[Rfam]
RNA sequence: AGCUUUGCACCGUGGCAGUAUCGUAGCCAAUGAGGUUUAUCCGAGGCAUGAUUAUUGCUAAUCAGCUUAAUCAGAAACUUUGGAAAAUUGUAAAGCACUAUAGAAUUUAAAGAAUUUUUCAUUCAAUAAAAA
Numbered sequence: 001a002g003c004u005u006u007g008c009a010c011c012g013u014g015g016c017a018g019u020a021u022c023g024u025a026g027c028c029a030a031u032g033a034g035g036u037u038u039a040u041c042c043g044a045g046g047c048a049u050g051a052u053u054a055u056u057g058c059u060a061a062u063c064a065g066c067u068u069a070a071u072c073a074g075a076a077a078c079u080u081u082g083g084a085a086a087a088u089u090g091u092a093a094a095g096c097a098c099u100a101u102a103g104a105a106u107u108u109a110a111a112g113a114a115u116u117u118u119u120c121a122u123u124c125a126a127u128a129a130a131a132a
Stems, first nucleotide, its partner, number of pairs: 020052005026047003034042002079112003085108005091102002094099001
RNA: U4 spliceosomal RNA